[Rfam]
RNA sequence: AUGUGAGGACGACCUCACCGCUCUUUAUUUACUAGGGACGACCCU
Dot-bracket structure: ..((((((....))))))...............((((....))))
RNA: Guanidine-II riboswitch aptamer (mini-ykkC)